[Rfam]
Nucleotides: 076
Base pairs, nucleotide, nucleotide: 004030005029006028007027008026010024011023012022013021014020031057032056033055034054035053036051037050038049039048040047058074059073060072061071062070063069
Number, partner (000 for none) and nucleotide at each position: 001000c002000c003000g004030g005029g006028c007027g008026a009000a010024c011023u012022g013021a014020c015000c016000g017000c018000u019000c020014g021013u022012c023011a024010g025000c026008u027007c028006g029005c030004c031057g032056c033055g034054g035053a036051u037050g038049c039048u040047u041000u042000a043000c044000c045000a046000u047040g048039g049038g050037c051036g052000c053035u054034u055033c056032g057031c058074g059073c060072c061071g062070g063069a064000u065000c066000a067000g068000c069063u070062c071061c072060g073059g074058c075000g076000u
Shown here is a 76-nucleotide sequence from Pseudomonas aeruginosa, a member of the family "Pseudomonas sRNA P13". Lineage of the source: Bacteria > Pseudomonadota > Pseudomonadales > Pseudomonas > Pseudomonas aeruginosa. By type it is a small RNA. A reference for the family is Livny et al. (2006), "Identification of 17 Pseudomonas aeruginosa sRNAs and prediction of sRNA-encoding genes in 10 diverse pathogens using the bioinformatic tool sRNAPredict2", Nucleic Acids Res.